The family of this 172-nucleotide RNA from Paraburkholderia ginsengiterrae is "Group II catalytic intron D1-D4-3". Pairs were carried over by alignment from the consensus structure. It scores 129 bits against the family's covariance model.

RNA sequence: UCGCGGGCGACUGCGAGUCUGAAGGAAGUCCGAGGCAAAGCGCUGGCCUGACGAACAGGAAGCGGAUAUGAGGCGACGCGUUGGGACGAGGCAGCGAAAAAGGCCAAAUCCAGUACUUGCACGGAACGACGCGGCGUAAAUCCGACGGGCAUAAGCGUGAAGGUGGGUGCGU
Numbered sequence: 001u002c003g004c005g006g007g008c009g010a011c012u013g014c015g016a017g018u019c020u021g022a023a024g025g026a027a028g029u030c031c032g033a034g035g036c037a038a039a040g041c042g043c044u045g046g047c048c049u050g051a052c053g054a055a056c057a058g059g060a061a062g063c064g065g066a067u068a069u070g071a072g073g074c075g076a077c078g079c080g081u082u083g084g085g086a087c088g089a090g091g092c093a094g095c096g097a098a099a100a101a102g103g104c105c106a107a108a109u110c111c112a113g114u115a116c117u118u119g120c121a122c123g124g125a126a127c128g129a130c131g132c133g134g135c136g137u138a139a140a141u142c143c144g145a146c147g148g149g150c151a152u153a154a155g156c157g158u159g160a161a162g163g164u165g166g167g168u169g170c171g172u
Base pairs, nucleotide, nucleotide: 001016002015003014004013005012006011028172029171031169032168035164036163040158041157042156043155044154046150047149048148049147050146063144064143065142066141067140073137074136075135077133078132079131080130081129082128083127084111085110086109090105091104092103